[Rfam]
RNA: Betaproteobacteria toxic small RNA
RNA sequence: UGUCUCCUCCACCCUCCUCCUUUGGCGUGGAUUUCAGCCCGAAGCCUCAUUGCUUCGGGCUUUUUUU
Numbered sequence: 001u002g003u004c005u006c007c008u009c010c011a012c013c014c015u016c017c018u019c020c021u022u023u024g025g026c027g028u029g030g031a032u033u034u035c036a037g038c039c040c041g042a043a044g045c046c047u048c049a050u051u052g053c054u055u056c057g058g059g060c061u062u063u064u065u066u067u
Stems, first nucleotide, its partner, number of pairs: 008031005013025002036061008